[Rfam]
RNA sequence: GGGAGGUGUGAUCCCGUGCUUCCUGGGAGGUGUGAUAUUGUGGUUCCUGGGAGGUGUGAUCCCGUGCUCCCU
Numbered sequence: 001g002g003g004a005g006g007u008g009u010g011a012u013c014c015c016g017u018g019c020u021u022c023c024u025g026g027g028a029g030g031u032g033u034g035a036u037a038u039u040g041u042g043g044u045u046c047c048u049g050g051g052a053g054g055u056g057u058g059a060u061c062c063c064g065u066g067c068u069c070c071c072u
Stems, first nucleotide, its partner, number of pairs: 001071005015058004020053010031042004
A member of the RNA family "mir-3689 microRNA precursor family" from Homo sapiens, 72 nucleotides long.
Gene Ontology terms of the family: miRNA-mediated post-transcriptional gene silencing and RISC complex.
Taxonomically the source falls in Homo (Eukaryota, Eumetazoa, Craniata, Euarchontoglires).